[Rfam]
RNA sequence: UGGCAUCCAACGUGGACCUGGAUACUGGGGGCAUCUCAUGAGGGAGACGACGGGAAAAGGAAGGAGUGCACUCGUUCAGUUUCAAGCAGUUGGAGACGCCCCGUGGGAGCCUUCGCAACUGAACCGAAGGUAAGUUGUGCCGUCCAAUCAUGGGGCAAGAAUUGAGCCAGCAUCAGAUUUAUGUCAGGCAAUUGAGAGAGGCUCUAAAGACACGAGGAGUAAAGGUUAGGACUGUGGAUUUAUUUCAUUUCUUUGAUUUUGUAAAGGACAAUUGUCCCU
Numbered sequence: 001u002g003g004c005a006u007c008c009a010a011c012g013u014g015g016a017c018c019u020g021g022a023u024a025c026u027g028g029g030g031g032c033a034u035c036u037c038a039u040g041a042g043g044g045a046g047a048c049g050a051c052g053g054g055a056a057a058a059g060g061a062a063g064g065a066g067u068g069c070a071c072u073c074g075u076u077c078a079g080u081u082u083c084a085a086g087c088a089g090u091u092g093g094a095g096a097c098g099c100c101c102c103g104u105g106g107g108a109g110c111c112u113u114c115g116c117a118a119c120u121g122a123a124c125c126g127a128a129g130g131u132a133a134g135u136u137g138u139g140c141c142g143u144c145c146a147a148u149c150a151u152g153g154g155g156c157a158a159g160a161a162u163u164g165a166g167c168c169a170g171c172a173u174c175a176g177a178u179u180u181a182u183g184u185c186a187g188g189c190a191a192u193u194g195a196g197a198g199a200g201g202c203u204c205u206a207a208a209g210a211c212a213c214g215a216g217g218a219g220u221a222a223a224g225g226u227u228a229g230g231a232c233u234g235u236g237g238a239u240u241u242a243u244u245u246c247a248u249u250u251c252u253u254u255g256a257u258u259u260u261g262u263a264a265a266g267g268a269c270a271a272u273u274g275u276c277c278c279u
Stems, first nucleotide, its partner, number of pairs: 006031003012025003036050002039047001086131002090128002097121002103116004138157003143154004163206002166202003213255007223241005264279001266277004
Rfam assigns this 279-nucleotide RNA sequence from Nannospalax galili to the family "Mason-Pfizer monkey virus packaging signal". A reference for the family is Mustafa et al. (2004), "Mutational analysis of the predicted secondary RNA structure of the Mason-Pfizer monkey virus packaging signal", Virus Res. The family has 9 seed sequences and 2,921 matches in Rfam 15.1. NCBI's taxonomy places the organism under Eukaryota, Deuterostomia, Sarcopterygii, Theria, Nannospalax. It scores 165 bits against the family's covariance model.